[Rfam]
RNA sequence: CAGCCGGGACGACCCGGCCGCCACAUCGGCCUGAACUCGCCGGGACGACCCGG
Numbered sequence: 001c002a003g004c005c006g007g008g009a010c011g012a013c014c015c016g017g018c019c020g021c022c023a024c025a026u027c028g029g030c031c032u033g034a035a036c037u038c039g040c041c042g043g044g045a046c047g048a049c050c051c052g053g
Stems, first nucleotide, its partner, number of pairs: 001020001003018006040053005
RNA: Guanidine-II riboswitch aptamer (mini-ykkC)
Organism: Solimonas marina